[Rfam]
RNA sequence: UCUGGGGUGAUCCCGAAUCUGAAGGAAGUCGGCGGCAAAUCUCCGCCUUUAGGAACACGAACUUCAUACGAGGCUAGAUGUAUUUGAGUGAGACUGCUAAACAAGUUAAAGCCCGUACUGCCAAAGAAUACAUCAAGUAAAUGAAGGAAGGACAAGGAGAGGAAGAAUAUGCG
Numbered sequence: 001u002c003u004g005g006g007g008u009g010a011u012c013c014c015g016a017a018u019c020u021g022a023a024g025g026a027a028g029u030c031g032g033c034g035g036c037a038a039a040u041c042u043c044c045g046c047c048u049u050u051a052g053g054a055a056c057a058c059g060a061a062c063u064u065c066a067u068a069c070g071a072g073g074c075u076a077g078a079u080g081u082a083u084u085u086g087a088g089u090g091a092g093a094c095u096g097c098u099a100a101a102c103a104a105g106u107u108a109a110a111g112c113c114c115g116u117a118c119u120g121c122c123a124a125a126g127a128a129u130a131c132a133u134c135a136a137g138u139a140a141a142u143g144a145a146g147g148a149a150g151g152a153c154a155a156g157g158a159g160a161g162g163a164a165g166a167a168u169a170u171g172c173g
Stems, first nucleotide, its partner, number of pairs: 001016002004013003030171002036165001040160005046151005062146006073138003077134007086114001088112002092107004
This 173-nucleotide RNA from Virgibacillus pantothenticus belongs to the Rfam family "Group II catalytic intron D1-D4-3". Pairs were carried over by alignment from the consensus structure. The match comes from Rfam's covariance-model search (117 bits). About the family: Group II introns are found in rRNA, tRNA and mRNA of organelles in fungi, plants and protists, and also in mRNA in bacteria.